MIR6145 microRNA precursor family: a 77-nucleotide RNA sequence from Microcaecilia unicolor. The organism belongs to Microcaecilia, within Eukaryota. Pairs were carried over by alignment from the consensus structure, which was predicted with RNAalifold.

RNA sequence: GUCAAGGGCAUAAAUCAAGUAUUAUCGGCUGAAAUCAAUAUAUUUCAGCCGAUAAUACUUGAUUUAUGCCCUUGACA
Numbered sequence: 001g002u003c004a005a006g007g008g009c010a011u012a013a014a015u016c017a018a019g020u021a022u023u024a025u026c027g028g029c030u031g032a033a034a035u036c037a038a039u040a041u042a043u044u045u046c047a048g049c050c051g052a053u054a055a056u057a058c059u060u061g062a063u064u065u066a067u068g069c070c071c072u073u074g075a076c077a
Stems, first nucleotide, its partner, number of pairs: 001076008010067010021056010
Its family is annotated with miRNA-mediated post-transcriptional gene silencing and RISC complex in the Gene Ontology. A search with the family's covariance model found it, with a score of 54 bits.